[Rfam]
RNA sequence: CGCUCUCCGUAUUCACUGCGCGCCUUGAUGUGCCCAAACGUAUCAUAAGGCACGCGGUGAAUGCCAAGAGGC
Numbered sequence: 001c002g003c004u005c006u007c008c009g010u011a012u013u014c015a016c017u018g019c020g021c022g023c024c025u026u027g028a029u030g031u032g033c034c035c036a037a038a039c040g041u042a043u044c045a046u047a048a049g050g051c052a053c054g055c056g057g058u059g060a061a062u063g064c065c066a067a068g069a070g071g072c
Stems, first nucleotide, its partner, number of pairs: 003070004009064008018055003023050005030043001
RNA: mir-124 microRNA precursor family